[Rfam]
RNA sequence: AGGGUGCGCUCAGAGCAGGGGGCCUGAGGGAUGGCUCCUCUGUUUACACCGCACCCCACAGAAACCCGGGGUCAGGGUGACGAGGGGCACGCAGCGCACGGCCUCCCCCUCCCCACACACACCCCACAUGC
Numbered sequence: 001a002g003g004g005u006g007c008g009c010u011c012a013g014a015g016c017a018g019g020g021g022g023c024c025u026g027a028g029g030g031a032u033g034g035c036u037c038c039u040c041u042g043u044u045u046a047c048a049c050c051g052c053a054c055c056c057c058a059c060a061g062a063a064a065c066c067c068g069g070g071g072u073c074a075g076g077g078u079g080a081c082g083a084g085g086g087g088c089a090c091g092c093a094g095c096g097c098a099c100g101g102c103c104u105c106c107c108c109c110u111c112c113c114c115a116c117a118c119a120c121a122c123c124c125c126a127c128a129u130g131c
Stems, first nucleotide, its partner, number of pairs: 002056007013045009022035003069124004077116002082112001084104003088100001091097002
RNA: Small nucleolar RNA SNORA11